Notes
Rfam assigns this 180-nucleotide RNA sequence from Stegastes partitus to the family "Small nucleolar RNA SNORA81". NCBI's taxonomy places the organism under Eukaryota, Bilateria, Craniata, Euacanthomorphacea, Stegastes. The match comes from Rfam's covariance-model search (79 bits).
RNA sequence: CCCUUCUGCAUUAACAGAAGUCUGCUAUAAUUGUGUGAUCCAGAUGUUCUGGUUCAUGCAAUCAUGCUAGCAGACUAUGACGUGGAAGGAGAUUGUUGUGCACUGGACUGAAAACGAGAUGCAGUCGAACCUCUUUCUUAAUGUUCAUUGGCUUCCGUCUCAAGGUCAAGUGCUACAACU
Numbered sequence: 001c002c003c004u005u006c007u008g009c010a011u012u013a014a015c016a017g018a019a020g021u022c023u024g025c026u027a028u029a030a031u032u033g034u035g036u037g038a039u040c041c042a043g044a045u046g047u048u049c050u051g052g053u054u055c056a057u058g059c060a061a062u063c064a065u066g067c068u069a070g071c072a073g074a075c076u077a078u079g080a081c082g083u084g085g086a087a088g089g090a091g092a093u094u095g096u097u098g099u100g101c102a103c104u105g106g107a108c109u110g111a112a113a114a115c116g117a118g119a120u121g122c123a124g125u126c127g128a129a130c131c132u133c134u135u136u137c138u139u140a141a142u143g144u145u146c147a148u149u150g151g152c153u154u155c156c157g158u159c160u161c162a163a164g165g166u167c168a169a170g171u172g173c174u175a176c177a178a179c180u
Base pairs, nucleotide, nucleotide: 020075021074023072024071025070026069027068030065031064033062036056037055040052041051042050043049044048100173101172102171103170104169106167107166122151124149127146128145129144